[Rfam]
RNA sequence: AAUAUGAACUGGGAAAAGGGUCUGAAUAAAGAGAUUUGUGUGUUGCCAUCGGCCUCAUCUCUUGAAAUUGCUAACGAGAAUGAAGUUAAACAACGAUACUAAAUGU
Numbered sequence: 001a002a003u004a005u006g007a008a009c010u011g012g013g014a015a016a017a018g019g020g021u022c023u024g025a026a027u028a029a030a031g032a033g034a035u036u037u038g039u040g041u042g043u044u045g046c047c048a049u050c051g052g053c054c055u056c057a058u059c060u061c062u063u064g065a066a067a068u069u070g071c072u073a074a075c076g077a078g079a080a081u082g083a084a085g086u087u088a089a090a091c092a093a094c095g096a097u098a099c100u101a102a103a104u105g106u
Stems, first nucleotide, its partner, number of pairs: 040099006051087003055083002058079004

This 106-nucleotide RNA from Olea europaea belongs to the Rfam family "Small nucleolar RNA snoR97". It is annotated as an H/ACA-box small nucleolar RNA. The base pairs follow the family's consensus structure, which was predicted with WAR. The family has 7 seed sequences and 862 matches in Rfam 15.1. Rfam links the family to the GO terms nucleolus and RNA processing. The match comes from Rfam's covariance-model search (55 bits).